[Rfam]
RNA sequence: CGUAAAGGCUAGGGGUGCUUCCUUGUUUCCAUGUGCUUCGUGGGAUAGGGCGGCUGAGAAAAACCCUUUGAACCUGACCCCGGUUAAUACCGGCGUAGGAAAGCCCUGACUUCCCUGC
Dot-bracket structure: ......((((((((.((((.(((((((((............))))))))).)))......)..)))).....((((...((((......))))..))))..)))).............
Numbered sequence: 001c002g003u004a005a006a007g008g009c010u011a012g013g014g015g016u017g018c019u020u021c022c023u024u025g026u027u028u029c030c031a032u033g034u035g036c037u038u039c040g041u042g043g044g045a046u047a048g049g050g051c052g053g054c055u056g057a058g059a060a061a062a063a064c065c066c067u068u069u070g071a072a073c074c075u076g077a078c079c080c081c082g083g084u085u086a087a088u089a090c091c092g093g094c095g096u097a098g099g100a101a102a103g104c105c106c107u108g109a110c111u112u113c114c115c116u117g118c
Stems, first nucleotide, its partner, number of pairs: 007105004011067004016061001017054003021050009073099004080093004
Record summary: Shown here is a 118-nucleotide RNA from Methylobacter tundripaludum, a member of the family "TPP riboswitch aptamer (THI element)". It scores 60 bits against the family's covariance model. Lineage of the source: Bacteria > Pseudomonadati > Pseudomonadota > Methylococcales > Methylobacter tundripaludum.